Shown here is a 95-nucleotide RNA from Aquisphaera giovannonii, a member of the family "Selenocysteine transfer RNA". A search with the family's covariance model found it, with a score of 77 bits.
[Rfam]
RNA sequence: GGGAGCGUGUCCGUAGCUGGUGCUCGGCCUGGUCUUCAAAACCAGUGAGGGGUCGCGCGAGCGGCUCCUGGUGGGUUCGAUUCCCAUACGCUCCC
Dot-bracket structure: (((((((((.(((.(((....)))))).(((((.......)))))..(((((((........)))))))..((((.......)))))))))))))